Rfam assigns this 134-nucleotide RNA from Vombatus ursinus to the family "Small nucleolar RNA SNORA38".
The family's consensus secondary structure was predicted with RNAfold.
Rfam describes the family as follows. ACA38 is a member of the H/ACA class of snoRNA that guide the sites of modification of uridines to pseudouridines.
Its family is annotated with Cajal body, RNA processing and nucleolus in the Gene Ontology.
[Rfam]
RNA sequence: ACCUCCCACAAAGGCGUGUCUGUGGCUUCCAUCCAUAGAUACGUAAGAACUGGAGGCAAAGAAAUGAGGGCUGGAAAAGUUCAGGGCUGGCAUACCCUACCCUUGCUAGCCCAGGGACUUCCUGUCCUACAUUA
Dot-bracket structure: .(((((........(((((((..((...))......)))))))........)))))...........((((.................(((...(.........)...)))............)))).......